This 115-nucleotide RNA from Lachnospiraceae bacterium XBB2008 belongs to the Rfam family "FMN riboswitch aptamer (RFN element)". The source organism's lineage runs through Bacteria, Bacillati, Bacillota, Clostridia and Lachnospiraceae.
RNA sequence: ACGUUUCUUCAGGGCAGGGUGCGAUUCCCGACCGGCGGUAAAGUCCGCGAGCCAAAGUGCAUGAUCCGGUGAGAUUCCGGAACCGACAGUACAGUCUGGAUGAGAGGAGGAAUAU
Number, nucleotide and partner (000 for none) at each position: 001a000002c000003g113004u112005u111006u110007c109008u108009u107010c106011a000012g000013g000014g000015c000016a000017g029018g028019g027020u000021g000022c000023g000024a000025u000026u000027c019028c018029c017030g000031a095032c094033c085034g084035g048036c047037g046038g045039u000040a000041a000042a000043g083044u082045c038046c037047g036048c035049g000050a000051g000052c000053c059054a000055a000056a000057g000058u000059g053060c000061a000062u000063g000064a000065u081066c080067c079068g078069g077070u000071g000072a000073g000074a000075u000076u000077c069078c068079g067080g066081a065082a044083c043084c034085g033086a000087c098088a097089g096090u000091a000092c000093a000094g032095u031096c089097u088098g087099g000100a000101u000102g000103a000104g000105a000106g010107g009108a008109g007110g006111a005112a004113u003114a000115u000